[Rfam]
RNA sequence: AUGGUAUUAUUUUGGCAAAUGGGGUCUUCAUAAAGCACUGGGGAGGGGGGAGUUUGGGUGGGAUUCCUCCAUUCUCACCCUCAGCCCACAAUUAAAACUGUUUGGCAGUGCUUAUUACCCAAUAAGCUUUGCAUGGAAGAGGAUCCAUCCUACGGAGCACCUCUGCGGAGGCUUUUUUGGCUAAUGCACUGGCAAAUCGGCAAGUCACGAAAAGGGCAAUCAACUCAUGGUAAUUAGUAUGAGUCUG
Number, nucleotide and partner (000 for none) at each position: 001a000002u000003g000004g000005u000006a000007u000008u000009a000010u000011u000012u000013u000014g000015g000016c000017a000018a000019a000020u000021g000022g000023g000024g000025u000026c000027u000028u000029c000030a000031u000032a000033a000034a000035g000036c000037a000038c000039u000040g000041g000042g000043g000044a000045g000046g000047g000048g000049g086050g085051a000052g000053u000054u000055u000056g000057g000058g000059u000060g000061g000062g000063a000064u000065u000066c000067c000068u000069c000070c000071a000072u000073u000074c000075u000076c000077a000078c000079c000080c000081u000082c000083a000084g000085c050086c049087c000088a000089c000090a000091a000092u000093u000094a000095a000096a000097a000098c000099u000100g197101u196102u195103u194104g193105g000106c000107a000108g000109u000110g000111c000112u000113u000114a000115u000116u000117a000118c000119c000120c000121a000122a185123u184124a000125a000126g000127c000128u000129u000130u000131g000132c000133a000134u000135g000136g000137a000138a000139g000140a000141g000142g000143a000144u000145c000146c000147a000148u000149c000150c000151u000152a000153c000154g000155g000156a000157g000158c000159a000160c000161c000162u000163c000164u000165g000166c000167g000168g000169a000170g000171g000172c000173u000174u000175u000176u000177u000178u000179g000180g000181c000182u000183a000184a123185u122186g000187c000188a000189c000190u000191g000192g000193c104194a103195a102196a101197u100198c000199g000200g000201c000202a000203a000204g000205u000206c000207a000208c000209g000210a000211a000212a000213a000214g000215g000216g000217c000218a000219a000220u000221c000222a000223a244224c243225u242226c241227a240228u239229g238230g000231u000232a000233a000234u000235u000236a000237g000238u229239a228240u227241g226242a225243g224244u223245c000246u000247g000